Rfam assigns this 327-nucleotide RNA from Apteryx owenii to the family "Small Cajal body-specific RNA 7". Gene Ontology terms of the family: nucleolus and RNA processing. Taxonomically the source falls in Apteryx (Eukaryota, Teleostomi, Sarcopterygii, Dinosauria). The family's RNA type in Rfam is small Cajal body RNA. For this family Rfam cites "Cajal body-specific small nuclear RNAs: a novel class of 2'-O-methylation and pseudouridylation guide RNAs" (Darzacq et al., EMBO J, 2002).

[Rfam]
RNA sequence: UGGAAGUGAUGAAAUAGAGAUAAUUGGAUGUCUCUCUGAAUGGAGUGUGUAUGGUAAAUAUAAUUUGAAUUGAAUCAGACUUUUUGGGGGGAGGGGGAAGCGCGCACGUGUGUGUGUAUGUGGGGUAUAUAAAAGGCUGUAAACUGGGGGCACUGAUAAUGAAGUGCUGAUUCCGGAGUGCAUCUGAGGCAUGUUGUUAAAUUCUGGGGUGUUGCUUUUCAACAUUGCCGAUGAUUAGAGCCCAAAACAAGCUCACCAGACAAGCCUAGGCAUCUUAAAAAUCUCUAACAGGUUCAUUAAUGAAAAUGAUCCUGUGAUCUGAUCCAA
Dot-bracket structure: ((((...........................................................................................................................................................................................(((((...(((.(...)..)))......)))))..................................................................................................)))).